A member of the RNA family "mir-135 microRNA precursor family" from Callorhinchus milii, 88 nucleotides long.
[Rfam]
RNA sequence: UCGCUGAUGUGCUCUAUGGCUUUUUAUUCCUAUGUGAUGGUGUGUGUGUGUCUCGCCUAGGGGUGAAAGCCAUGGGAUAACUCAGUGA
Numbered sequence: 001u002c003g004c005u006g007a008u009g010u011g012c013u014c015u016a017u018g019g020c021u022u023u024u025u026a027u028u029c030c031u032a033u034g035u036g037a038u039g040g041u042g043u044g045u046g047u048g049u050g051u052c053u054c055g056c057c058u059a060g061g062g063g064u065g066a067a068a069g070c071c072a073u074g075g076g077a078u079a080a081c082u083c084a085g086u087g088a
Stems, first nucleotide, its partner, number of pairs: 002087006010079002013076011026064007034056004